[Rfam]
RNA sequence: GCUAUCCACCAAACAGCAGACAAGAGUGGACAACCACUUCCAAGGCUGGAGAGAUAGCCAGCCUCAGUUACAAACUACGUUUCGAGGGUCAUGACACCUACAGGUGCUUUCCAGCUUGUAGCCCUGUCGUCAAUAGUUAAACAUCCCUAUUUGGUUAAGGAAGUGCGAUUGGCAUAACAAGCCCUCAAAACAUUGGCGAGGAAAACAUUAC
Numbered sequence: 001g002c003u004a005u006c007c008a009c010c011a012a013a014c015a016g017c018a019g020a021c022a023a024g025a026g027u028g029g030a031c032a033a034c035c036a037c038u039u040c041c042a043a044g045g046c047u048g049g050a051g052a053g054a055u056a057g058c059c060a061g062c063c064u065c066a067g068u069u070a071c072a073a074a075c076u077a078c079g080u081u082u083c084g085a086g087g088g089u090c091a092u093g094a095c096a097c098c099u100a101c102a103g104g105u106g107c108u109u110u111c112c113a114g115c116u117u118g119u120a121g122c123c124c125u126g127u128c129g130u131c132a133a134u135a136g137u138u139a140a141a142c143a144u145c146c147c148u149a150u151u152u153g154g155u156u157a158a159g160g161a162a163g164u165g166c167g168a169u170u171g172g173c174a175u176a177a178c179a180a181g182c183c184c185u186c187a188a189a190a191c192a193u194u195g196g197c198g199a200g201g202a203a204a205a206c207a208u209u210a211c
Stems, first nucleotide, its partner, number of pairs: 001058006010024001014019001025038004061197003066076004079191004084186006094127002098121008108205002110202003129173006136166002141164002144161003148157002

Notes
Shown here is a 211-nucleotide sequence from Phormidium nigroviride, a member of the family "HNH endonuclease-associated RNA and ORF (HEARO) RNA". On this family, see Weinberg et al., Nature 2009: "Exceptional structured noncoding RNAs revealed by bacterial metagenome analysis". NCBI's taxonomy places the organism under Bacteria, Cyanophyceae, Oscillatoriales, Oscillatoriaceae, Phormidium nigroviride. A search with the family's covariance model found it, with a score of 121 bits. By type it is a non-coding RNA gene.